Background: A member of the RNA family "Vertebrate telomerase RNA" from Lonchura striata, 438 nucleotides long. For this family Rfam cites "Secondary structure of vertebrate telomerase RNA" (Chen et al., Cell, 2000). About the family: Telomerase is a ribonucleoprotein reverse transcriptase that synthesises telomeric DNA. Telomerase RNAs differ greatly in sequence and structure between vertebrates, ciliates and yeasts, but they share a 5' pseudoknot structure close to the template sequence. Its family is annotated with telomere maintenance via telomerase, telomerase activity and telomerase catalytic core complex in the Gene Ontology. The organism belongs to Lonchura, within Eukaryota. Rfam 15.1 lists 523 matches to the family in 477 species. Pairs were carried over by alignment from the consensus structure, which is taken from published work. A search with the family's covariance model found it, with a score of 160 bits.
[Rfam]
RNA sequence: UUUGCCGGGGUGUGCAGGCCCUAUGGCCAACUAACCCUAAUGGCGGCCGCGCCCCUCACGCUCGCCCGCUGUUUUACUCGCUGACUUUCAGCGGGCAAAGGAAGCGGCCUAUGGGAAGGGGGUGGGGGAAAAGAGUUCCGGCCUCAAGAAAAAAAAAAAAAGCCAGCGAGGGGGAUCCACACCCCGGCCCACCCUGGGGUCCCUGUCCCUUUUCCCCGACCGCGGAUGCUCCGGCCCUCGCCCGCCGUGGAGGCCGCGGUCGGCGGGCUCAGCGCCGCUGCCGCCGCGAAGAGCUCGUCUCUGUCAGCCUCGGCGGGGCCGGCAGCGCGGGGCAGCCGCGGGGCCCCAGCAGAGCAAAACGGGCGCGGCGCCGCUGGGCGCUGAGCAGCCGCCGCCCCCUGAGCCGUGGGGUGCGUGGCGGGCGCCGCCCCGACACCC
Number, nucleotide and partner (000 for none) at each position: 001u000002u000003u000004g188005c187006c186007g185008g184009g183010g182011u181012g180013u179014g178015c000016a176017g000018g000019c174020c173021c172022u171023a000024u000025g000026g000027c000028c000029a000030a000031c000032u000033a000034a000035c000036c000037c000038u000039a000040a000041u000042g000043g000044c000045g000046g000047c000048c000049g000050c000051g108052c107053c106054c000055c104056u000057c000058a000059c000060g000061c000062u000063c000064g096065c095066c094067c093068g092069c091070u090071g089072u000073u000074u000075u000076a000077c000078u000079c000080g167081c166082u165083g164084a000085c162086u160087u159088u158089c071090a070091g069092c068093g067094g066095g065096c064097a000098a000099a000100g000101g000102a000103a000104g055105c000106g053107g052108c051109c000110u000111a000112u000113g000114g000115g000116a000117a000118g000119g000120g000121g000122g000123u000124g000125g000126g000127g000128g000129a000130a000131a000132a000133g000134a000135g000136u000137u000138c000139c000140g000141g000142c000143c000144u000145c000146a000147a000148g000149a000150a000151a000152a000153a000154a000155a000156a000157a000158a088159a087160a086161a000162g085163c000164c083165a082166g081167c080168g000169a000170g000171g022172g021173g020174g019175a000176u016177c000178c014179a013180c012181a011182c010183c009184c008185c007186g006187g005188c004189c000190c000191a000192c000193c000194c349195u348196g347197g346198g345199g344200u343201c000202c000203c000204u000205g000206u000207c000208c000209c000210u000211u000212u000213u000214c000215c000216c000217c000218g000219a000220c000221c000222g000223c000224g337225g336226a000227u334228g333229c332230u331231c322232c321233g320234g319235c318236c317237c316238u000239c000240g000241c000242c000243c315244g314245c313246c000247g000248u000249g000250g000251a000252g000253g000254c000255c288256g287257c286258g285259g284260u000261c283262g282263g281264c280265g000266g276267g275268c274269u000270c000271a000272g000273c000274g268275c267276c266277g000278c000279u000280g264281c263282c262283g261284c259285c258286g257287c256288g255289a000290a302291g301292a300293g299294c000295u000296c000297g000298u000299c293300u292301c291302u290303g000304u000305c000306a000307g000308c000309c000310u000311c000312g000313g245314c244315g243316g237317g236318g235319c234320c233321g232322g231323c000324a000325g000326c000327g000328c000329g000330g000331g230332g229333c228334a227335g000336c225337c224338g000339c000340g000341g000342g000343g200344c199345c198346c197347c196348a195349g194350c000351a000352g000353a000354g000355c000356a000357a000358a000359a000360c000361g430362g429363g428364c427365g000366c000367g426368g425369c424370g423371c422372c421373g000374c000375u000376g000377g000378g000379c000380g000381c000382u000383g000384a000385g000386c000387a000388g000389c418390c417391g416392c415393c000394g000395c000396c411397c410398c409399c408400u000401g000402a000403g000404c000405c000406g000407u000408g399409g398410g397411g396412u000413g000414c000415g392416u391417g390418g389419c000420g000421g372422g371423c370424g369425c368426c367427g364428c363429c362430c361431c000432g000433a000434c000435a000436c000437c000438c000